[Rfam]
RNA sequence: UAGUAUAGGUUUUCUCAAGGGUGGUCGGCAUUCUCCUCCAUUUUAGCGAAGGGAGGUGAUGCUGCAUGACAGUAUAUGAAUCCUUAAUGAUUACAUUUGCUUUCGCGAGUUUGAUCAUAUCCAUUCUGUCAUUUCAUAAAAAAGACUAAAACCGCCCUUGAGAUUGGCCCCUCAUGGCGGUUUUAGUAACUUAGCUAUUUGUGUGUCGAUCCCUCUAAUGGGAACCUGCUAUUGUAUGGCCGUUUUGAUGUUCCAGCAUCGAAACGG
Numbered sequence: 001u002a003g004u005a006u007a008g009g010u011u012u013u014c015u016c017a018a019g020g021g022u023g024g025u026c027g028g029c030a031u032u033c034u035c036c037u038c039c040a041u042u043u044u045a046g047c048g049a050a051g052g053g054a055g056g057u058g059a060u061g062c063u064g065c066a067u068g069a070c071a072g073u074a075u076a077u078g079a080a081u082c083c084u085u086a087a088u089g090a091u092u093a094c095a096u097u098u099g100c101u102u103u104c105g106c107g108a109g110u111u112u113g114a115u116c117a118u119a120u121c122c123a124u125u126c127u128g129u130c131a132u133u134u135c136a137u138a139a140a141a142a143a144g145a146c147u148a149a150a151a152c153c154g155c156c157c158u159u160g161a162g163a164u165u166g167g168c169c170c171c172u173c174a175u176g177g178c179g180g181u182u183u184u185a186g187u188a189a190c191u192u193a194g195c196u197a198u199u200u201g202u203g204u205g206u207c208g209a210u211c212c213c214u215c216u217a218a219u220g221g222g223a224a225c226c227u228g229c230u231a232u233u234g235u236a237u238g239g240c241c242g243u244u245u246u247g248a249u250g251u252u253c254c255a256g257c258a259u260c261g262a263a264a265c266g267g
Stems, first nucleotide, its partner, number of pairs: 001234005008227002011224001012209002014162008023152001025150001029058002032056005068130005074124001081095001105121001210223004240267012
RNA: BsrG
Organism: Bacillus sp. FJAT-27231